[Rfam]
RNA: Small nucleolar RNA Z43
RNA sequence: UGGCGAUGACGAUUCUGGUAAAGGUCUCGUUCGACGUAAUGGCUAACCGCCUUGCCGACCAUCCUGUUAUAUCACCACCCAUAUUCUGAGUCC
Numbered sequence: 001u002g003g004c005g006a007u008g009a010c011g012a013u014u015c016u017g018g019u020a021a022a023g024g025u026c027u028c029g030u031u032c033g034a035c036g037u038a039a040u041g042g043c044u045a046a047c048c049g050c051c052u053u054g055c056c057g058a059c060c061a062u063c064c065u066g067u068u069a070u071a072u073c074a075c076c077a078c079c080c081a082u083a084u085u086c087u088g089a090g091u092c093c
Base pairs, nucleotide, nucleotide: 002092003091004090045053046052